[Rfam]
RNA sequence: UUCCGACUUAUAUCUCGGAAUUUUAAAAUUCCGAAUUAUAACUCGGGAUUUUAAAAUUCCGAGAUAUAAGUCGGAAUUUUAAAUCCAAAAUUCUGAGUUAUAACUCGGAAUUUUAAAAUUCCGAGUUAUAACUCGGAAUUUUACAU
Numbered sequence: 001u002u003c004c005g006a007c008u009u010a011u012a013u014c015u016c017g018g019a020a021u022u023u024u025a026a027a028a029u030u031c032c033g034a035a036u037u038a039u040a041a042c043u044c045g046g047g048a049u050u051u052u053a054a055a056a057u058u059c060c061g062a063g064a065u066a067u068a069a070g071u072c073g074g075a076a077u078u079u080u081a082a083a084u085c086c087a088a089a090a091u092u093c094u095g096a097g098u099u100a101u102a103a104c105u106c107g108g109a110a111u112u113u114u115a116a117a118a119u120u121c122c123g124a125g126u127u128a129u130a131a132c133u134c135g136g137a138a139u140u141u142u143a144c145a146u
Stems, first nucleotide, its partner, number of pairs: 003074006011066004016061014031046004036041001090140001092138001108119001111116001120137007
RNA: Small Cajal body specific RNA 1
Organism: Phaedon cochleariae